[Rfam]
RNA: Bacterial RNase P class A
Organism: Enhygromyxa salina
RNA sequence: UCGAGAGGCUGAGGUGAUCGCGGUCGGGGCUCCCUCGGGAGCUCGCAGAUCGAGGAAAGUCCGGGCCCCACAGGGCAGGGUGCUUGCGAAAUGCAAGUCGGGGUGACCCGCAGGAAAGUGCCACAGAAAGCAAACCUCCGGCGUUCGCGCCGGUAAGGGUGAAAGGGUGCGGUAAGAGCGCACCGGGCUCCCGGUGACGGGAGUCGCACGGUAAACCCCACUCGGAGCAAGGCCGAACAGGGAUGUGUCGCGGGUCUUCGGGCCCGCGACGAGGGGUGGCCCGCCCUAUCCCGGGUAGUGCCGCGUAGAAGAAUGAUCACCACCUGAGGGAGGCAACGAGCUCAGGGACAAAACCCGGCUUACGAUCCUCUCGGCCGC
Numbered sequence: 001u002c003g004a005g006a007g008g009c010u011g012a013g014g015u016g017a018u019c020g021c022g023g024u025c026g027g028g029g030c031u032c033c034c035u036c037g038g039g040a041g042c043u044c045g046c047a048g049a050u051c052g053a054g055g056a057a058a059g060u061c062c063g064g065g066c067c068c069c070a071c072a073g074g075g076c077a078g079g080g081u082g083c084u085u086g087c088g089a090a091a092u093g094c095a096a097g098u099c100g101g102g103g104u105g106a107c108c109c110g111c112a113g114g115a116a117a118g119u120g121c122c123a124c125a126g127a128a129a130g131c132a133a134a135c136c137u138c139c140g141g142c143g144u145u146c147g148c149g150c151c152g153g154u155a156a157g158g159g160u161g162a163a164a165g166g167g168u169g170c171g172g173u174a175a176g177a178g179c180g181c182a183c184c185g186g187g188c189u190c191c192c193g194g195u196g197a198c199g200g201g202a203g204u205c206g207c208a209c210g211g212u213a214a215a216c217c218c219c220a221c222u223c224g225g226a227g228c229a230a231g232g233c234c235g236a237a238c239a240g241g242g243a244u245g246u247g248u249c250g251c252g253g254g255u256c257u258u259c260g261g262g263c264c265c266g267c268g269a270c271g272a273g274g275g276g277u278g279g280c281c282c283g284c285c286c287u288a289u290c291c292c293g294g295g296u297a298g299u300g301c302c303g304c305g306u307a308g309a310a311g312a313a314u315g316a317u318c319a320c321c322a323c324c325u326g327a328g329g330g331a332g333g334c335a336a337c338g339a340g341c342u343c344a345g346g347g348a349c350a351a352a353a354c355c356c357g358g359c360u361u362a363c364g365a366u367c368c369u370c371u372c373g374g375c376c377g378c
Base pairs, nucleotide, nucleotide: 001374002373003372004371005370006369007368008367010365011363013321014320015319016318017317018316019315021052022051023050024049025048027046029044057361058360059359061358062357063356064355065354066227068225069224073282074281075280076279078223079222080221081220082219083097084096085095086094087093098112099110100109101108102107113218114217118216119215120212121211122210135158136157138153139152140151141150142149143148166184167183168182169181170180171179185207186205187204188203189202190201191200192199193198231302232301233300234298241292242291273287274286275285276284277283